[Rfam]
RNA sequence: GAGGAUAUGACGAUCCUUUCCCCAGAUGAUCGACGAUGAGCAUAAUGUGCGCUAUUGUUCUCUUAAGAGAUAAUCAAGCCAGAACUAUGAUUCUC
Numbered sequence: 001g002a003g004g005a006u007a008u009g010a011c012g013a014u015c016c017u018u019u020c021c022c023c024a025g026a027u028g029a030u031c032g033a034c035g036a037u038g039a040g041c042a043u044a045a046u047g048u049g050c051g052c053u054a055u056u057g058u059u060c061u062c063u064u065a066a067g068a069g070a071u072a073a074u075c076a077a078g079c080c081a082g083a084a085c086u087a088u089g090a091u092u093c094u095c
Stems, first nucleotide, its partner, number of pairs: 001095005

A member of the RNA family "Small nucleolar RNA Z103", 95 nucleotides long. Gene Ontology terms of the family: nucleolus and RNA processing. Rfam classes the family as a C/D-box small nucleolar RNA. Pairs were carried over by alignment from the consensus structure, which was predicted with PFOLD.